[Rfam]
RNA sequence: AAGGCGUAUCACUUAAGCCCAGGAUUUUGAGACCAGCCUGGGCAACAAAGUGAGAUCCUGU
Numbered sequence: 001a002a003g004g005c006g007u008a009u010c011a012c013u014u015a016a017g018c019c020c021a022g023g024a025u026u027u028u029g030a031g032a033c034c035a036g037c038c039u040g041g042g043c044a045a046c047a048a049a050g051u052g053a054g055a056u057c058c059u060g061u
Stems, first nucleotide, its partner, number of pairs: 007055001009053006017043007027036003